[Rfam]
RNA sequence: CAAUAGGGUGGCCGCUUGCCUCAGGAAACUUGGGGUGCCGCCCUUGC
Numbered sequence: 001c002a003a004u005a006g007g008g009u010g011g012c013c014g015c016u017u018g019c020c021u022c023a024g025g026a027a028a029c030u031u032g033g034g035g036u037g038c039c040g041c042c043c044u045u046g047c
Stems, first nucleotide, its partner, number of pairs: 006043006018036008